This 176-nucleotide sequence from Garciella nitratireducens belongs to the Rfam family "Lysine riboswitch aptamer". The family's consensus secondary structure is taken from published work. Taxonomically the source falls in Garciella nitratireducens (Bacteria, Bacillati, Eubacteriales, Eubacteriaceae).
RNA sequence: AAUAUAGAUAGAGGUGCAUUUUUUAUAAGUAAGUUUUGGAGAGGAAAGGGACUCAAUGAAAAAAACUGAAAGGAAAAAAUGCCGAAGGAGAUUUUUUCCCUUUUUAAAAACCUCCUGGGCUUAUUGUGAAUAACAAUAAGACUGUCAUCAUAAUUUGAUGGUGCGCUAUCUGUGAA
Numbered sequence: 001a002a003u004a005u006a007g008a009u010a011g012a013g014g015u016g017c018a019u020u021u022u023u024u025a026u027a028a029g030u031a032a033g034u035u036u037u038g039g040a041g042a043g044g045a046a047a048g049g050g051a052c053u054c055a056a057u058g059a060a061a062a063a064a065a066c067u068g069a070a071a072g073g074a075a076a077a078a079a080u081g082c083c084g085a086a087g088g089a090g091a092u093u094u095u096u097u098c099c100c101u102u103u104u105u106a107a108a109a110a111c112c113u114c115c116u117g118g119g120c121u122u123a124u125u126g127u128g129a130a131u132a133a134c135a136a137u138a139a140g141a142c143u144g145u146c147a148u149c150a151u152a153a154u155u156u157g158a159u160g161g162u163g164c165g166c167u168a169u170c171u172g173u174g175a176a
Base pairs, nucleotide, nucleotide: 006171007170008169009168010167011166016082017081018080019079020078021077022076023075024074032067033066034065035064036063037062086116087115088114089113090112092110093109094108095107096106117143118142120140121139122138123137124136125135126134127133145161146160147159148158149157150156